[Rfam]
Archaeal RNase P: a 323-nucleotide RNA from Thermococcus sibiricus. Rfam links the family to the GO terms ribonuclease P activity, multimeric ribonuclease P complex and tRNA processing. On this family, see Brown, Nucleic Acids Res 1999: "The Ribonuclease P Database". Its Rfam clan is "RNaseP clan".
RNA sequence: GUGAGGGAGCUGGGGCUGUCGGGUGUUAAAACCCGAGGAAGUUCCGCCCACCACACCGGAACGUGGUGCCGCAAGGCACCUCCUGAAAGGGAGGGCAACGGCGCAGAAACGACACGUCCUCUCACGUAUGAGAAUGAAGGCGGAGAAAGGAACUCGUAAGAGUUCCCGAGAUAACCCGCCGACGACUUGAGAGGGAACGGUGAAACGGCCGCCCCACGUGGUGCAAGGCCGAGAAAGGGGCGAUGAGUUCCCGGUGGGAGUCCCGUGGUAGGCUGCUCAGUCGAAUGCCCCAGAGUACAGAAGGCGGGCUAUAGCUCCCUCAC
Numbered sequence: 001g002u003g004a005g006g007g008a009g010c011u012g013g014g015g016c017u018g019u020c021g022g023g024u025g026u027u028a029a030a031a032c033c034c035g036a037g038g039a040a041g042u043u044c045c046g047c048c049c050a051c052c053a054c055a056c057c058g059g060a061a062c063g064u065g066g067u068g069c070c071g072c073a074a075g076g077c078a079c080c081u082c083c084u085g086a087a088a089g090g091g092a093g094g095g096c097a098a099c100g101g102c103g104c105a106g107a108a109a110c111g112a113c114a115c116g117u118c119c120u121c122u123c124a125c126g127u128a129u130g131a132g133a134a135u136g137a138a139g140g141c142g143g144a145g146a147a148a149g150g151a152a153c154u155c156g157u158a159a160g161a162g163u164u165c166c167c168g169a170g171a172u173a174a175c176c177c178g179c180c181g182a183c184g185a186c187u188u189g190a191g192a193g194g195g196a197a198c199g200g201u202g203a204a205a206c207g208g209c210c211g212c213c214c215c216a217c218g219u220g221g222u223g224c225a226a227g228g229c230c231g232a233g234a235a236a237g238g239g240g241c242g243a244u245g246a247g248u249u250c251c252c253g254g255u256g257g258g259a260g261u262c263c264c265g266u267g268g269u270a271g272g273c274u275g276c277u278c279a280g281u282c283g284a285a286u287g288c289c290c291c292a293g294a295g296u297a298c299a300g301a302a303g304g305c306g307g308g309c310u311a312u313a314g315c316u317c318c319c320u321c322a323c
Base pairs, nucleotide, nucleotide: 001323002322003321005319006318007317008316009315010314011292012291013290014289015288016287020035021034022033023032024031040310041309042308044307045306046305047304048303049223050222051221052220054256055255056254057253058252059251061219062218063217064216065215066079067078068077069076070075080093081092082091083090084089094214095213099211100210101209102208115199116198117197118194119193120192121191122190123189124188140179141178142177143176227274228273229272230271237264238263239262240261241260